[Rfam]
RNA: ASpks TB sRNA
RNA sequence: CUUCACCGACCCCAGCCACAACGGCCGUUCGCCGGGCCGGUCCUGCCCGUACGUGGCGAGGAGCGCCUGGGCCUC
Numbered sequence: 001c002u003u004c005a006c007c008g009a010c011c012c013c014a015g016c017c018a019c020a021a022c023g024g025c026c027g028u029u030c031g032c033c034g035g036g037c038c039g040g041u042c043c044u045g046c047c048c049g050u051a052c053g054u055g056g057c058g059a060g061g062a063g064c065g066c067c068u069g070g071g072c073c074u075c
Base pairs, nucleotide, nucleotide: 015025016024017023032070033069038065039064043060044059047056048055049054